RNA sequence: AGAGUCCCAUCUGAAUAAAGCAUGGCCAGCAGUUCAGUAGCAAUGCCCGAGGGUAAACCCGGAGACGGGAAUCCUAAGCCGGGCAUGAGUGAGGAUGCAGGCCCUGUAUUGAGCUCCGAAAAAAGUAUUAUUGUGGUCAUUGGAUAAAUUCCCACCAAGCGUGGUGAUGAAAGCCGACGUUCUCGAUAAAACGGAAGGCAGCAGUUCUCUAUACGUUCAGGCCAGAAUAGAGGACACCACCGUAGUCUGAGACCA
Numbered sequence: 001a002g003a004g005u006c007c008c009a010u011c012u013g014a015a016u017a018a019a020g021c022a023u024g025g026c027c028a029g030c031a032g033u034u035c036a037g038u039a040g041c042a043a044u045g046c047c048c049g050a051g052g053g054u055a056a057a058c059c060c061g062g063a064g065a066c067g068g069g070a071a072u073c074c075u076a077a078g079c080c081g082g083g084c085a086u087g088a089g090u091g092a093g094g095a096u097g098c099a100g101g102c103c104c105u106g107u108a109u110u111g112a113g114c115u116c117c118g119a120a121a122a123a124a125g126u127a128u129u130a131u132u133g134u135g136g137u138c139a140u141u142g143g144a145u146a147a148a149u150u151c152c153c154a155c156c157a158a159g160c161g162u163g164g165u166g167a168u169g170a171a172a173g174c175c176g177a178c179g180u181u182c183u184c185g186a187u188a189a190a191a192c193g194g195a196a197g198g199c200a201g202c203a204g205u206u207c208u209c210u211a212u213a214c215g216u217u218c219a220g221g222c223c224a225g226a227a228u229a230g231a232g233g234a235c236a237c238c239a240c241c242g243u244a245g246u247c248u249g250a251g252a253c254c255a
Stems, first nucleotide, its partner, number of pairs: 012036004020030002023224004040090002044085004049079001050075005058069004110249001111247001113246003117242002133240005173199003178193004204235009214225001

Rfam assigns this 255-nucleotide sequence from Desulfobacter postgatei to the family "Group II catalytic intron D1-D4-6". Lineage of the source: Bacteria > Pseudomonadati > Desulfobacterales > Desulfobacter > Desulfobacter postgatei. It scores 98 bits against the family's covariance model. Group II introns are found in rRNA, tRNA and mRNA of organelles in fungi, plants and protists, and also in mRNA in bacteria.